[Rfam]
RNA: Small nucleolar RNA SNORD45
Organism: Ibidorhyncha struthersii
RNA sequence: GGUCGGUGAUGAGUGUUGGCAUGUAUUAUCUGCUCUGAAGUUGAUAUUUAUCCCCACUUCAGCUCUAGAAUUACUCGGAGUACUUU
Numbered sequence: 001g002g003u004c005g006g007u008g009a010u011g012a013g014u015g016u017u018g019g020c021a022u023g024u025a026u027u028a029u030c031u032g033c034u035c036u037g038a039a040g041u042u043g044a045u046a047u048u049u050a051u052c053c054c055c056a057c058u059u060c061a062g063c064u065c066u067a068g069a070a071u072u073a074c075u076c077g078g079a080g081u082a083c084u085u086u
Base pairs, nucleotide, nucleotide: 001084002083003082004080